The record is a 367-nucleotide sequence from Streptococcus hyointestinalis, which matches "Bacterial RNase P class B" in Rfam. The family's RNA type in Rfam is ribozyme. It is one of the family's seed sequences. The family's consensus secondary structure is taken from published work. Gene Ontology terms of the family: dimeric ribonuclease P complex, tRNA processing and ribonuclease P activity.
[Rfam]
RNA sequence: AUUUUUGGAUAAUCGCGUGGUGUUUAGAUACCAUGAGGAAAGUCCAUGCUAGCACUGGCUGUGAUGCCGGUAGUGUUUGUGCUAGGCGAAAAAAUAAGCCUAGGGAGGUAGCGAUACCUUACGGCGAUCAAAAGAGCUAAGUCUUUGAUAUGCUCAAGUAGAUCUGAAAAGUGCCACAGUGACGUAGUUUUUAGGGAAACCUAAAAAGUGGAACGCGGUAAACCCCUCAAGCUAGCAACCCAAACUUUGGUAGGGGCAUGGGAUAGUUGGAAACGAACGAUCUAUCCUGACUGCUUUUGCAGUAGACAGAUGAUUAUCGAAGGUGGCAAGACCUAGUUGCCGCCGGAACAAAACAUGGCUUAUAGAA
Numbered sequence: 001a002u003u004u005u006u007g008g009a010u011a012a013u014c015g016c017g018u019g020g021u022g023u024u025u026a027g028a029u030a031c032c033a034u035g036a037g038g039a040a041a042g043u044c045c046a047u048g049c050u051a052g053c054a055c056u057g058g059c060u061g062u063g064a065u066g067c068c069g070g071u072a073g074u075g076u077u078u079g080u081g082c083u084a085g086g087c088g089a090a091a092a093a094a095u096a097a098g099c100c101u102a103g104g105g106a107g108g109u110a111g112c113g114a115u116a117c118c119u120u121a122c123g124g125c126g127a128u129c130a131a132a133a134g135a136g137c138u139a140a141g142u143c144u145u146u147g148a149u150a151u152g153c154u155c156a157a158g159u160a161g162a163u164c165u166g167a168a169a170a171g172u173g174c175c176a177c178a179g180u181g182a183c184g185u186a187g188u189u190u191u192u193a194g195g196g197a198a199a200c201c202u203a204a205a206a207a208g209u210g211g212a213a214c215g216c217g218g219u220a221a222a223c224c225c226c227u228c229a230a231g232c233u234a235g236c237a238a239c240c241c242a243a244a245c246u247u248u249g250g251u252a253g254g255g256g257c258a259u260g261g262g263a264u265a266g267u268u269g270g271a272a273a274c275g276a277a278c279g280a281u282c283u284a285u286c287c288u289g290a291c292u293g294c295u296u297u298u299g300c301a302g303u304a305g306a307c308a309g310a311u312g313a314u315u316a317u318c319g320a321a322g323g324u325g326g327c328a329a330g331a332c333c334u335a336g337u338u339g340c341c342g343c344c345g346g347a348a349c350a351a352a353a354c355a356u357g358g359c360u361u362a363u364a365g366a367a
Stems, first nucleotide, its partner, number of pairs: 004367003007363001008318007016035006040361003044358005049235005054071006077230003081226001082103006104122001105120006123225002126164004134155004141149003171223002173219003188207008239255003259289007290303005322344008